[Rfam]
RNA sequence: UUUCCCUGACUUGGGUAUAGUGGCAUCUGGUUGGUGGUGCCCAUCUCAUAUCAGCCAGGGACAAAGCAACCCCUUGUUCCUCUCAGCUUGGAUUUUCAUCUAUGCCUAUGCCUGGUUCAUGCCUUGGACAUAUUA
Numbered sequence: 001u002u003u004c005c006c007u008g009a010c011u012u013g014g015g016u017a018u019a020g021u022g023g024c025a026u027c028u029g030g031u032u033g034g035u036g037g038u039g040c041c042c043a044u045c046u047c048a049u050a051u052c053a054g055c056c057a058g059g060g061a062c063a064a065a066g067c068a069a070c071c072c073c074u075u076g077u078u079c080c081u082c083u084c085a086g087c088u089u090g091g092a093u094u095u096u097c098a099u100c101u102a103u104g105c106c107u108a109u110g111c112c113u114g115g116u117u118c119a120u121g122c123c124u125u126g127g128a129c130a131u132a133u134u135a
Stems, first nucleotide, its partner, number of pairs: 001063001003061006011054004019046002022041006075130005090123002096119001098117001100115003104111002
A member of the RNA family "Small nucleolar RNA SNORA48", 135 nucleotides long. Clan: SNORA48 clan. The snoRNA ACA 48 has been identified to guide pseudouridylation of the residue U3797 in the 28S rRNA subunit. Rfam's curators put it in the seed alignment. Rfam 15.1 lists 2,109 matches to the family in 150 species.